Rfam assigns this 51-nucleotide RNA from Pollutimonas nitritireducens to the family "nhaA-I RNA". It is annotated as a riboswitch. Lineage of the source: Bacteria > Pseudomonadati > Pseudomonadota > Burkholderiales > Pollutimonas. About the family: Acidobacteria, Alphaproteobacteria, Betaproteobacteria and Gammaproteobacteria, Verrucomicrobia, cand. division NC10. A search with the family's covariance model found it, with a score of 48 bits.

[Rfam]
Nucleotides: 051
Stems, first nucleotide, its partner, number of pairs: 005024002008022005033051002036049004
Number, partner (000 for none) and nucleotide at each position: 001000g002000g003000g004000u005024g006023c007000u008022c009021a010020c011019a012018c013000u014000u015000u016000c017000u018012g019011u020010g021009u022008g023006g024005c025000a026000g027000g028000g029000u030000a031000u032000g033051c034050g035000a036049u037048g038047g039046u040000c041000g042000g043000g044000c045000c046039g047038c048037c049036a050034c051033g